[Rfam]
Pseudomonas rnk leader: a 101-nucleotide RNA sequence from Pseudomonas sp. 1239. Rfam links the family to the GO term regulation of gene expression. The literature on the family includes a 2010 paper in Genome Biol by Naville and Gautheret, "Premature terminator analysis sheds light on a hidden world of bacterial transcriptional attenuation". The family's consensus secondary structure is taken from published work. It scores 67 bits against the family's covariance model. Taxonomically the source falls in Pseudomonas (Bacteria, Gammaproteobacteria, Pseudomonadales, Pseudomonadaceae).
Nucleotides: 101
Stems, first nucleotide, its partner, number of pairs: 001051002005047001018034006069092010
Number, partner (000 for none) and nucleotide at each position: 001051g002050c003000g004000a005047g006000c007000c008000u009000c010000u011000u012000g013000u014000g015000u016000a017000u018034u019033u020032a021031u022030u023029g024000u025000g026000c027000u028000g029023u030022g031021g032020u033019a034018g035000u036000g037000u038000c039000g040000a041000g042000g043000u044000u045000g046000a047005u048000c049000g050002g051001c052000c053000u054000g055000g056000c057000c058000g059000a060000a061000a062000a063000a064000c065000a066000u067000g068000c069092a070091a071090a072089c073088c074087c075086c076085g077084c078083c079000c080000u081000u082000g083078g084077g085076c086075g087074g088073g089072g090071u091070u092069u093000u094000g095000c096000u097000u098000u099000a100000u101000a